[Rfam]
RNA sequence: UGGUAGAUGCACCCUGAUUUAUUGCCCUCGUCCAUGCCUAGUGGACAGGGCUUUUUUGG
Numbered sequence: 001u002g003g004u005a006g007a008u009g010c011a012c013c014c015u016g017a018u019u020u021a022u023u024g025c026c027c028u029c030g031u032c033c034a035u036g037c038c039u040a041g042u043g044g045a046c047a048g049g050g051c052u053u054u055u056u057u058g059g
Base pairs, nucleotide, nucleotide: 002013003012004011024051025050026049027048028047030046031045032044033043034042
This 59-nucleotide sequence from Leptolyngbya boryana belongs to the Rfam family "Nitrogen stress-induced RNA 1". For this family Rfam cites "Heterocyst-specific transcription of NsiR1, a non-coding RNA encoded in a tandem array of direct repeats in cyanobacteria" (Ionescu et al., J Mol Biol, 2010). It is annotated as a small RNA. Pairs were carried over by alignment from the consensus structure. NCBI's taxonomy places the organism under Bacteria, Bacillati, Cyanobacteriota, Leptolyngbyaceae, Leptolyngbya boryana.